A member of the RNA family "Small nucleolar RNA SNORD63" from Myotis myotis, 69 nucleotides long. Rfam 15.1 lists 795 matches to the family in 549 species. About the family: snoRNA U63 is found in both humans and mice. A search with the family's covariance model found it, with a score of 68 bits. A reference for the family is Galardi et al. (2002), "Purified box C/D snoRNPs are able to reproduce site-specific 2'-O-methylation of target RNA in vitro", Mol Cell Biol. Pairs were carried over by alignment from the consensus structure, which was predicted with PFOLD. Rfam classes the family as a C/D-box small nucleolar RNA.

RNA sequence: GUGCUGUGAUGUAUUGUCAACACAUCAUUCUGAAGAAAAGUAUGUGGUGACGUCCUGUGACUGAGCACA
Numbered sequence: 001g002u003g004c005u006g007u008g009a010u011g012u013a014u015u016g017u018c019a020a021c022a023c024a025u026c027a028u029u030c031u032g033a034a035g036a037a038a039a040g041u042a043u044g045u046g047g048u049g050a051c052g053u054c055c056u057g058u059g060a061c062u063g064a065g066c067a068c069a
Base pairs, nucleotide, nucleotide: 001068002067003066004065